[Rfam]
RNA sequence: ACAUUCGUCAAGGGGGAGUAGCGUUAGCCUUUUUGGAGGCUAAGAUAAAGUCGUCAUUACAUGAAUUCGUUCAUCGGCUUUAUUAACAUUUUAUACAAUGUCAGCGAGACCUUUGCCAAUUUGGGCAGGGGUCUCGUUUUUUGUUGUUUGAAAGCAGACGCUUGUGAC
Dot-bracket structure: ........................(((............))).((((((((((.......(((((....)))))))))))))))..((..........................................................................)..)..
Numbered sequence: 001a002c003a004u005u006c007g008u009c010a011a012g013g014g015g016g017a018g019u020a021g022c023g024u025u026a027g028c029c030u031u032u033u034u035g036g037a038g039g040c041u042a043a044g045a046u047a048a049a050g051u052c053g054u055c056a057u058u059a060c061a062u063g064a065a066u067u068c069g070u071u072c073a074u075c076g077g078c079u080u081u082a083u084u085a086a087c088a089u090u091u092u093a094u095a096c097a098a099u100g101u102c103a104g105c106g107a108g109a110c111c112u113u114u115g116c117c118a119a120u121u122u123g124g125g126c127a128g129g130g131g132u133c134u135c136g137u138u139u140u141u142u143g144u145u146g147u148u149u150g151a152a153a154g155c156a157g158a159c160g161c162u163u164g165u166g167a168c
Stems, first nucleotide, its partner, number of pairs: 025042003044084010061074005087166001088163001

The family of this 168-nucleotide RNA from Listeria booriae is "Manganese Mn2+ riboswitch aptamer (yybP-ykoY)". A search with the family's covariance model found it, with a score of 54 bits. Lineage of the source: Bacteria > Bacillota > Caryophanales > Listeriaceae > Listeria. This RNA was originally discovered in E. coli during a large scale screen and was named SraF. The family was later found to exist upstream of related families of protein genes in many bacteria, including the the yybP and ykoK genes in B. subtilis. The base pairs follow the family's consensus structure.